[Rfam]
RNA sequence: UAGCAGUUCCCAGCUCUGAGAACUGAAUUCCAUGAACUGGUUUCAGUUCUAUAUCUUCAGUCCAUGGUAGUCAGUUCUCUAGCUUGGCUGUAUCUA
Numbered sequence: 001u002a003g004c005a006g007u008u009c010c011c012a013g014c015u016c017u018g019a020g021a022a023c024u025g026a027a028u029u030c031c032a033u034g035a036a037c038u039g040g041u042u043u044c045a046g047u048u049c050u051a052u053a054u055c056u057u058c059a060g061u062c063c064a065u066g067g068u069a070g071u072c073a074g075u076u077c078u079c080u081a082g083c084u085u086g087g088c089u090g091u092a093u094c095u096a
Stems, first nucleotide, its partner, number of pairs: 009087002012084003019078008034063001036061005
Dot-bracket structure: ........((.(((....((((((((.......(.(((((................))))).).......))))))))...))).)).........
RNA: mir-146 microRNA precursor family
Organism: Chelonoidis abingdonii